[Rfam]
RNA sequence: CGCGCCGUCAUUGGGGAGUAGCCGCCCUCCGGCGUUCGGGAGGGGUGCGUGUCAACAUGCUCGGUCGAAAGAUCGUGGUGCGCACGGGUUUCAGAUCUGGCAAGACCUUUGACCCUGCCGCCGCCAUUCAUGGCCGGGGAGGCGCAGGGUCAUCGGUAUGGACCGGCCUGGAACCA
Numbered sequence: 001c002g003c004g005c006c007g008u009c010a011u012u013g014g015g016g017a018g019u020a021g022c023c024g025c026c027c028u029c030c031g032g033c034g035u036u037c038g039g040g041a042g043g044g045g046u047g048c049g050u051g052u053c054a055a056c057a058u059g060c061u062c063g064g065u066c067g068a069a070a071g072a073u074c075g076u077g078g079u080g081c082g083c084a085c086g087g088g089u090u091u092c093a094g095a096u097c098u099g100g101c102a103a104g105a106c107c108u109u110u111g112a113c114c115c116u117g118c119c120g121c122c123g124c125c126a127u128u129c130a131u132g133g134c135c136g137g138g139g140a141g142g143c144g145c146a147g148g149g150u151c152a153u154c155g156g157u158a159u160g161g162a163c164c165g166g167c168c169u170g171g172a173a174c175c176a
Stems, first nucleotide, its partner, number of pairs: 026043003045085010062075005088175001090173003